[Rfam]
RNA sequence: UGUCAAUGUUUUUAACGUCAUUUUGGCGGGUGGAUUUCUUUUGCCUUUUGAAAGGUGAGAGGGAAUG
Numbered sequence: 001u002g003u004c005a006a007u008g009u010u011u012u013u014a015a016c017g018u019c020a021u022u023u024u025g026g027c028g029g030g031u032g033g034a035u036u037u038c039u040u041u042u043g044c045c046u047u048u049u050g051a052a053a054g055g056u057g058a059g060a061g062g063g064a065a066u067g
Stems, first nucleotide, its partner, number of pairs: 009062005016057004021053006028046001030044005
RNA: S-element